[Rfam]
Nucleotides: 053
Stems, first nucleotide, its partner, number of pairs: 001043002009036002012034001013031002019051005
Number, partner (000 for none) and nucleotide at each position: 001043g002042a003000a004000g005000c006000u007000a008000g009036c010035c011000a012034g013031a014030c015000a016000u017000a018000c019051g020050u021049g022048a023047g024000u025000u026000g027000c028000a029000a030014g031013u032000a033000c034012u035010g036009g037000a038000u039000a040000g041000c042002u043001u044000a045000g046000u047023c048022u049021c050020a051019c052000a053000c